The record is a 75-nucleotide sequence from Mycobacterium heidelbergense, which matches "Fluoride riboswitch aptamer (crcB RNA motif)" in Rfam.
RNA sequence: ACUGGCAUCGGCGAUGGCGCUCGCCGGAAAGCUCUGCUUUCGAACCGCCACACGGCUGAUGGCACCUGCGAACGC
Dot-bracket structure: .........((((..[[.[[[)))).....................(((....)))....]]].]].........

A search with the family's covariance model found it, with a score of 46 bits. The family's consensus secondary structure is taken from published work.